[Rfam]
RNA: Purine riboswitch aptamer
Organism: Bacillus yapensis
RNA sequence: GCAAAUCACAAAAAUGUUCCUUGUAUAAUAUCAGUUGAACGGUCUGAUAGUUUCUACCCGGCAGCCAUAAUUGCUGGACUACAGGGAAGUAUGAAUAAUUA
Number, nucleotide and partner (000 for none) at each position: 001g000002c000003a000004a000005a000006u000007c000008a000009c000010a000011a000012a000013a000014a000015u000016g000017u000018u087019c086020c085021u084022u083023g082024u081025a080026u000027a000028a000029u049030a048031u047032c046033a045034g044035u000036u000037g000038a000039a000040c000041g000042g000043u000044c034045u033046g032047a031048u030049a029050g000051u000052u000053u000054c000055u000056a000057c000058c077059c076060g075061g074062c073063a072064g071065c000066c000067a000068u000069a000070a000071u064072u063073g062074c061075u060076g059077g058078a000079c000080u025081a024082c023083a022084g021085g020086g019087a018088a000089g000090u000091a000092u000093g000094a000095a000096u000097a000098a000099u000100u000101a000